[Rfam]
RNA sequence: AGCUGCGGAUGAAGAGAUGUACGAAAUAGACAGUUAUCCCUGGCUGAUUUUUAUCUUCAAGUGCUGAUAUUUCUUCGAAAUCCGACGCAGAA
Numbered sequence: 001a002g003c004u005g006c007g008g009a010u011g012a013a014g015a016g017a018u019g020u021a022c023g024a025a026a027u028a029g030a031c032a033g034u035u036a037u038c039c040c041u042g043g044c045u046g047a048u049u050u051u052u053a054u055c056u057u058c059a060a061g062u063g064c065u066g067a068u069a070u071u072u073c074u075u076c077g078a079a080a081u082c083c084g085a086c087g088c089a090g091a092a
Base pairs, nucleotide, nucleotide: 003090004089005088006087007086
RNA: Small nucleolar RNA R38